[Rfam]
RNA sequence: CGGGGAGUGGCUCAGCCUGGUAGAGCACUUGGUUCGGGACCAAGGGGUCGCAGGUUCGAAUCCUGUCUCCCCGA
Numbered sequence: 001c002g003g004g005g006a007g008u009g010g011c012u013c014a015g016c017c018u019g020g021u022a023g024a025g026c027a028c029u030u031g032g033u034u035c036g037g038g039a040c041c042a043a044g045g046g047g048u049c050g051c052a053g054g055u056u057c058g059a060a061u062c063c064u065g066u067c068u069c070c071c072c073g074a
Stems, first nucleotide, its partner, number of pairs: 001073007010026004028044005050066005
RNA: tRNA
Organism: Melittangium boletus